The family of this 169-nucleotide sequence from Polarella glacialis is "ACEA small nucleolar RNA U3".
The family's RNA type in Rfam is C/D-box small nucleolar RNA.
Rfam's curators write: Small nucleolar RNAs (snoRNAs) are involved in the processing and modification of rRNA in the nucleolus. There are two main classes of snoRNAs: the box C/D class, and the box H/ACA class. U3 snoRNA is a member of the box C/D class. Indeed, the box C/D element is a subset of the six short sequence elements found in all U3 snoRNAs, namely boxes A, A', B, C, C', and D. The U3 snoRNA secondary structure is characterised by a small 5' domain (with boxes A and A'), and a larger 3' domain (with boxes B, C, C', and D), the two domains being linked by a single-stranded hinge.
The organism belongs to Polarella, within Eukaryota.
Clan: U3 clan.
RNA sequence: UCGACUGUACUUGCACAGGAUCACUGCUACAGUGAUUCCUCUUGCAUUCAUGUCAUAAAACAGAGCUUCACAGCAUCUCUGGUGAUGUCGAUCUCUGCACUGAUAAGGGAAUUUGCUGGAGCUUGCUCCCAGCUUGAUGAAAUCUAUCAGUGCAGACUUCUGAAGAGAU
Numbered sequence: 001u002c003g004a005c006u007g008u009a010c011u012u013g014c015a016c017a018g019g020a021u022c023a024c025u026g027c028u029a030c031a032g033u034g035a036u037u038c039c040u041c042u043u044g045c046a047u048u049c050a051u052g053u054c055a056u057a058a059a060a061c062a063g064a065g066c067u068u069c070a071c072a073g074c075a076u077c078u079c080u081g082g083u084g085a086u087g088u089c090g091a092u093c094u095c096u097g098c099a100c101u102g103a104u105a106a107g108g109g110a111a112u113u114u115g116c117u118g119g120a121g122c123u124u125g126c127u128c129c130c131a132g133c134u135u136g137a138u139g140a141a142a143u144c145u146a147u148c149a150g151u152g153c154a155g156a157c158u159u160c161u162g163a164a165g166a167g168a169u
Base pairs, nucleotide, nucleotide: 003039006035008034009033010032011031017028018027020025046067048065051062052061053060076168077167078166079165080164094156095155096154097153098152100150101149102148103147104146105145107130108129109128132144134142135141